[Rfam]
RNA sequence: UAAGAAAAAGCCAAACCUGACGUGAGUCAGGGACGGAAAGCCUACGGGUCUCAUGGGGAGACGGCCGGGUUGCUCUUG
Numbered sequence: 001u002a003a004g005a006a007a008a009a010g011c012c013a014a015a016c017c018u019g020a021c022g023u024g025a026g027u028c029a030g031g032g033a034c035g036g037a038a039a040g041c042c043u044a045c046g047g048g049u050c051u052c053a054u055g056g057g058g059a060g061a062c063g064g065c066c067g068g069g070u071u072g073c074u075c076u077u078g
Base pairs, nucleotide, nucleotide: 001078004074011036012035016031017030018029019028020027021026034064039071040070041069042068045067046066047065048062049061050060